[Rfam]
The record is a 205-nucleotide sequence from Oryza barthii, which matches "MIR812 microRNA precursor family" in Rfam. A search with the family's covariance model found it, with a score of 131 bits. Taxonomically the source falls in Oryza (Eukaryota, Spermatophyta, Mesangiospermae, Poales).
RNA sequence: UUUAAAUGCAACCAUGAUUUUCCGUGCACAACUUUGAUCAUCUGUCUUAUUUAAAAUUUUUUUGAAAAAAAUUAAAAACAUAAAUCAUGUAUAAAGUACUAUCCAUAUUUUAUCAUCUCAUAACAAUAAAAAAUAUAAAUUAUAAAAAAAUUCAAAUAAGAUGGACGAUCAAAGUUGAGUACGAAAAAUUAUGGUUGUAUUUAAA
Numbered sequence: 001u002u003u004a005a006a007u008g009c010a011a012c013c014a015u016g017a018u019u020u021u022c023c024g025u026g027c028a029c030a031a032c033u034u035u036g037a038u039c040a041u042c043u044g045u046c047u048u049a050u051u052u053a054a055a056a057u058u059u060u061u062u063u064g065a066a067a068a069a070a071a072u073u074a075a076a077a078a079c080a081u082a083a084a085u086c087a088u089g090u091a092u093a094a095a096g097u098a099c100u101a102u103c104c105a106u107a108u109u110u111u112a113u114c115a116u117c118u119c120a121u122a123a124c125a126a127u128a129a130a131a132a133a134u135a136u137a138a139a140u141u142a143u144a145a146a147a148a149a150a151u152u153c154a155a156a157u158a159a160g161a162u163g164g165a166c167g168a169u170c171a172a173a174g175u176u177g178a179g180u181a182c183g184a185a186a187a188a189u190u191a192u193g194g195u196u197g198u199a200u201u202u203a204a205a
Stems, first nucleotide, its partner, number of pairs: 027179001029177011041165012